[Rfam]
Nucleotides: 045
Base pairs, nucleotide, nucleotide: 006021007020008019009018010017011016
Number, partner (000 for none) and nucleotide at each position: 001000a002000c003000a004000a005000c006021g007020g008019c009018u010017c011016u012000u013000u014000u015000a016011a017010g018009a019008g020007c021006c022000a023000c024000c025000c026000a027000c028000a029000a030000a031000c032000c033000u034000c035000u036000a037000a038000a039000g040000a041000a042000u043000a044000a045000a
The record is a 45-nucleotide RNA sequence from Haplochromis burtoni, which matches "Histone 3' UTR stem-loop" in Rfam. NCBI's taxonomy places the organism under Eukaryota, Euteleostomi, Actinopteri, Clupeocephala, Haplochromis. The base pairs follow the family's consensus structure, which is taken from published work. The match comes from Rfam's covariance-model search (39 bits).